RNA sequence: UAUUUGAAUCAUCACUGCGGUCAACUCGAUGAACAAAGCACGCCAGUGCUUCGAGGUGCACGGUACUUUCAGGUUGAUUAAGUUGGGAUGCUAAUUUAUGAGGUCUGUCUCAAGAUAGCGAUAUCUUGAGAGGAGGCAGAAACUGCCAACAAAAACGUGUAUCGCAGAAGUAUUCGCAUCAAAAAGUUUGGAGCUUCCGGGUGCAGCAAUAGACGCUCACUGUGUGAGAAUAACCCUAAGGGGUGUUGGUGUGGCAACCAACAUGACGGAGGGAAGCCAAGAAUGCACAUUGCCUUGAGACGGAGAAAUCCGUGUAUAACGGAAGCUAGCAGAAAAAGUAGCCGAAUGGCAGUUACUACUCUACAACCAUUUCUGAAUGGUCGGUGAAUUUGCAGGCAAUCAAUCCUGUACAGGCAAGGGCGCAAGCUGGGGCUAGAAGUUUACGGCCGACGGGCCGUAGGCUCAGACUAGUCUUCCUGUUGACUGAAUAUUGGUGAAGAAUAUCUAUGUACGGCGAAGGCCGGGCCGCAGUCAUGAUUCAAG
Numbered sequence: 001u002a003u004u005u006g007a008a009u010c011a012u013c014a015c016u017g018c019g020g021u022c023a024a025c026u027c028g029a030u031g032a033a034c035a036a037a038g039c040a041c042g043c044c045a046g047u048g049c050u051u052c053g054a055g056g057u058g059c060a061c062g063g064u065a066c067u068u069u070c071a072g073g074u075u076g077a078u079u080a081a082g083u084u085g086g087g088a089u090g091c092u093a094a095u096u097u098a099u100g101a102g103g104u105c106u107g108u109c110u111c112a113a114g115a116u117a118g119c120g121a122u123a124u125c126u127u128g129a130g131a132g133g134a135g136g137c138a139g140a141a142a143c144u145g146c147c148a149a150c151a152a153a154a155a156c157g158u159g160u161a162u163c164g165c166a167g168a169a170g171u172a173u174u175c176g177c178a179u180c181a182a183a184a185a186g187u188u189u190g191g192a193g194c195u196u197c198c199g200g201g202u203g204c205a206g207c208a209a210u211a212g213a214c215g216c217u218c219a220c221u222g223u224g225u226g227a228g229a230a231u232a233a234c235c236c237u238a239a240g241g242g243g244u245g246u247u248g249g250u251g252u253g254g255c256a257a258c259c260a261a262c263a264u265g266a267c268g269g270a271g272g273g274a275a276g277c278c279a280a281g282a283a284u285g286c287a288c289a290u291u292g293c294c295u296u297g298a299g300a301c302g303g304a305g306a307a308a309u310c311c312g313u314g315u316a317u318a319a320c321g322g323a324a325g326c327u328a329g330c331a332g333a334a335a336a337a338g339u340a341g342c343c344g345a346a347u348g349g350c351a352g353u354u355a356c357u358a359c360u361c362u363a364c365a366a367c368c369a370u371u372u373c374u375g376a377a378u379g380g381u382c383g384g385u386g387a388a389u390u391u392g393c394a395g396g397c398a399a400u401c402a403a404u405c406c407u408g409u410a411c412a413g414g415c416a417a418g419g420g421c422g423c424a425a426g427c428u429g430g431g432g433c434u435a436g437a438a439g440u441u442u443a444c445g446g447c448c449g450a451c452g453g454g455c456c457g458u459a460g461g462c463u464c465a466g467a468c469u470a471g472u473c474u475u476c477c478u479g480u481u482g483a484c485u486g487a488a489u490a491u492u493g494g495u496g497a498a499g500a501a502u503a504u505c506u507a508u509g510u511a512c513g514g515c516g517a518a519g520g521c522c523g524g525g526c527c528g529c530a531g532u533c534a535u536g537a538u539u540c541a542a543g
Stems, first nucleotide, its partner, number of pairs: 008539001016531001020527001022525001025055005037050005057161006071106005079098008108131010135147005174501001180494001182492001185491001186485001189331002193326007201288005216228004234273004244263006252279004290352005300313005335389001341385005372467004395407002411479003414427001429476004434471001436469001439463001441460003445456004512523004
The family of this 543-nucleotide RNA is "ROOL RNA". From the family's description: Firmicutes, Fusobacteria (1 example), Tenericutes (1 example). The family's RNA type in Rfam is small RNA. The base pairs follow the family's consensus structure, which is taken from published work. The sequence is in the family's curated seed alignment.